[Rfam]
RNA sequence: AGUCGGCACUAGGGGUGCUUGGUUGACUUUAUGUUGCCAGGCUGAGAUUGUACCCUCAUCUACUUGAUCAGGAUAAUACCUGCGAAAGGAAGUGCCAUUGUAUUUUU
Dot-bracket structure: .....(((((((((.((((((((............))))))).......)..))))......(((...((((......))))...)))..)))))............
TPP riboswitch aptamer (THI element): a 107-nucleotide RNA.
The match comes from Rfam's covariance-model search (64 bits).